The record is a 124-nucleotide RNA from Falsibacillus pallidus, which matches "PyrR binding site" in Rfam. The match comes from Rfam's covariance-model search (66 bits). The family has 41 seed sequences and 1,498 matches in Rfam 15.1. This family represents the PyrR binding site and terminator structure. This RNA structure is found upstream of a variety of genes involved in pyrimidine biosynthesis and transport.
RNA sequence: UUUUCCUUUUAAUUUUAGUCCAGAGAGGCUGAAAAAGGGAUUCACUCUGCACAGCAUCAUGCCAGAUGUAUAUCUGCAUGCAGACAACCCUUUUUGCACCUCAAAGCAAAAAGGGUUUUUAUUU
Numbered sequence: 001u002u003u004u005c006c007u008u009u010u011a012a013u014u015u016u017a018g019u020c021c022a023g024a025g026a027g028g029c030u031g032a033a034a035a036a037g038g039g040a041u042u043c044a045c046u047c048u049g050c051a052c053a054g055c056a057u058c059a060u061g062c063c064a065g066a067u068g069u070a071u072a073u074c075u076g077c078a079u080g081c082a083g084a085c086a087a088c089c090c091u092u093u094u095u096g097c098a099c100c101u102c103a104a105a106g107c108a109a110a111a112a113g114g115g116u117u118u119u120u121a122u123u124u
Stems, first nucleotide, its partner, number of pairs: 003040007015032006054081004063076005084119001086117012